The family of this 82-nucleotide RNA sequence from Orrella dioscoreae is "SucA RNA motif". By type it is a cis-regulatory element. On this family, see Weinberg et al., Nucleic Acids Res 2007: "Identification of 22 candidate structured RNAs in bacteria using the CMfinder comparative genomics pipeline". It scores 56 bits against the family's covariance model. The family's consensus secondary structure is taken from published work.
RNA sequence: CCGCUAUCCGCUUAACGGUUGGACCGUGUCGCGGAAGGUUUUCCUGCACUGCAUCGGGUGAAGCACCCGGAUAGGUGAAGCG
Numbered sequence: 001c002c003g004c005u006a007u008c009c010g011c012u013u014a015a016c017g018g019u020u021g022g023a024c025c026g027u028g029u030c031g032c033g034g035a036a037g038g039u040u041u042u043c044c045u046g047c048a049c050u051g052c053a054u055c056g057g058g059u060g061a062a063g064c065a066c067c068c069g070g071a072u073a074g075g076u077g078a079a080g081c082g
Stems, first nucleotide, its partner, number of pairs: 002082003007035005016026004037044002047077004054070007